[Rfam]
RNA sequence: UCCGGGGGAAGCUCACCGCCGAGGCCACGUACGGGGUGCGCGUCACCCAGGCCCCGCCUCGGGGAAGGUCUGAGGGAAGGGCCGCCCGCGGCUCCAGCAGAGCCCCGCCCGCCCGGGGCGGGUGAGCCACCAGCAAGGGGGGGCGCCGCGCCGCCGCUGACGGGGCCGCUCCCCGGGCAGGAGAAGCCGAGGCGGGUUCCCCGUGAGGGACCCCCGGCGGAUGCUUGUGGCCUCGCGGCGCUUUGAGACAGACUCACGGCCGGCGACUGAGUCCAAUGGGUGAGGUGGGGCAGCGCCCCACAACCUAAUUCAGACUACUCUCCCCGGGA
Numbered sequence: 001u002c003c004g005g006g007g008g009a010a011g012c013u014c015a016c017c018g019c020c021g022a023g024g025c026c027a028c029g030u031a032c033g034g035g036g037u038g039c040g041c042g043u044c045a046c047c048c049a050g051g052c053c054c055c056g057c058c059u060c061g062g063g064g065a066a067g068g069u070c071u072g073a074g075g076g077a078a079g080g081g082c083c084g085c086c087c088g089c090g091g092c093u094c095c096a097g098c099a100g101a102g103c104c105c106c107g108c109c110c111g112c113c114c115g116g117g118g119c120g121g122g123u124g125a126g127c128c129a130c131c132a133g134c135a136a137g138g139g140g141g142g143g144c145g146c147c148g149c150g151c152c153g154c155c156g157c158u159g160a161c162g163g164g165g166c167c168g169c170u171c172c173c174c175g176g177g178c179a180g181g182a183g184a185a186g187c188c189g190a191g192g193c194g195g196g197u198u199c200c201c202c203g204u205g206a207g208g209g210a211c212c213c214c215c216g217g218c219g220g221a222u223g224c225u226u227g228u229g230g231c232c233u234c235g236c237g238g239c240g241c242u243u244u245g246a247g248a249c250a251g252a253c254u255c256a257c258g259g260c261c262g263g264c265g266a267c268u269g270a271g272u273c274c275a276a277u278g279g280g281u282g283a284g285g286u287g288g289g290g291c292a293g294c295g296c297c298c299c300a301c302a303a304c305c306u307a308a309u310u311c312a313g314a315c316u317a318c319u320c321u322c323c324c325c326g327g328g329a
Stems, first nucleotide, its partner, number of pairs: 001329003007323003012284006020061005034048005070313005080261004090104005105121006122257005128251001142242009285301007

Shown here is a 329-nucleotide RNA from Rhinoptilus africanus, a member of the family "Nuclear RNase P". Taxonomically the source falls in Rhinoptilus (Eukaryota, Bilateria, Deuterostomia, Archosauria).